[Rfam]
RNA sequence: GGUGCGUGUCCUUAAUAGAAAAUGCAGUGGCCGGAUUGCCACAUAAGAAGCAUGAGGUUGAAAAGCGGAUGCAAUUUCCGACGCGUACC
Numbered sequence: 001g002g003u004g005c006g007u008g009u010c011c012u013u014a015a016u017a018g019a020a021a022a023u024g025c026a027g028u029g030g031c032c033g034g035a036u037u038g039c040c041a042c043a044u045a046a047g048a049a050g051c052a053u054g055a056g057g058u059u060g061a062a063a064a065g066c067g068g069a070u071g072c073a074a075u076u077u078c079c080g081a082c083g084c085g086u087a088c089c
Stems, first nucleotide, its partner, number of pairs: 001089010022053004057066003067079003
This 89-nucleotide RNA belongs to the Rfam family "RAGATH-21 RNA". By type it is a small RNA. Rfam's curators put it in the seed alignment. The family's consensus secondary structure is taken from published work.